[Rfam]
RNA sequence: CGAGUCGGCCAGGCGAUCGCGGCACCUGGCGGUGUCGAGGAAAGUCCGGACUCCACAGAGCAGGGUGGUGGGUAACACCCACCCGGGGUGACCCGCGGGACAGUGCCACAGAAAGCAAACCGCCCGAAGUUCGCAAGAGCAUUCGGGUAAGGGUGAAACGGUGGUGUAAGAGACCACCAGCGUUCCAGGUGACUGGAGCGGCUCGGCAAACCCCACCCGGAGCAAGAUCAAGAAGGGAGUUCGCUCCCGCGGAGAUGUUCGAGGGCUGCUCGCCCGAGUCUCCGGGUAGAUCGCACCAGGCCGCCGGCAACGGCGGUCGCAGAUGGAUGAUCGCCACCGUCCUUGCGACGGGACAGAAUCCGGCUUACCGGCCGGCUCGCCCU
Numbered sequence: 001c002g003a004g005u006c007g008g009c010c011a012g013g014c015g016a017u018c019g020c021g022g023c024a025c026c027u028g029g030c031g032g033u034g035u036c037g038a039g040g041a042a043a044g045u046c047c048g049g050a051c052u053c054c055a056c057a058g059a060g061c062a063g064g065g066u067g068g069u070g071g072g073u074a075a076c077a078c079c080c081a082c083c084c085g086g087g088g089u090g091a092c093c094c095g096c097g098g099g100a101c102a103g104u105g106c107c108a109c110a111g112a113a114a115g116c117a118a119a120c121c122g123c124c125c126g127a128a129g130u131u132c133g134c135a136a137g138a139g140c141a142u143u144c145g146g147g148u149a150a151g152g153g154u155g156a157a158a159c160g161g162u163g164g165u166g167u168a169a170g171a172g173a174c175c176a177c178c179a180g181c182g183u184u185c186c187a188g189g190u191g192a193c194u195g196g197a198g199c200g201g202c203u204c205g206g207c208a209a210a211c212c213c214c215a216c217c218c219g220g221a222g223c224a225a226g227a228u229c230a231a232g233a234a235g236g237g238a239g240u241u242c243g244c245u246c247c248c249g250c251g252g253a254g255a256u257g258u259u260c261g262a263g264g265g266c267u268g269c270u271c272g273c274c275c276g277a278g279u280c281u282c283c284g285g286g287u288a289g290a291u292c293g294c295a296c297c298a299g300g301c302c303g304c305c306g307g308c309a310a311c312g313g314c315g316g317u318c319g320c321a322g323a324u325g326g327a328u329g330a331u332c333g334c335c336a337c338c339g340u341c342c343u344u345g346c347g348a349c350g351g352g353a354c355a356g357a358a359u360c361c362g363g364c365u366u367a368c369c370g371g372c373c374g375g376c377u378c379g380c381c382c383u
Stems, first nucleotide, its partner, number of pairs: 001379010012335007020037007042366003046363005051222004058271004063218005068082005083097001084095004098213002103211002105207003120152002122148007160178006180202001181200008226292004236283004241278001263275004299318008
Record summary: The record is a 383-nucleotide sequence from Microlunatus elymi, which matches "Bacterial RNase P class A" in Rfam. Lineage of the source: Bacteria > Actinomycetota > Propionibacteriales > Propionibacteriaceae > Microlunatus.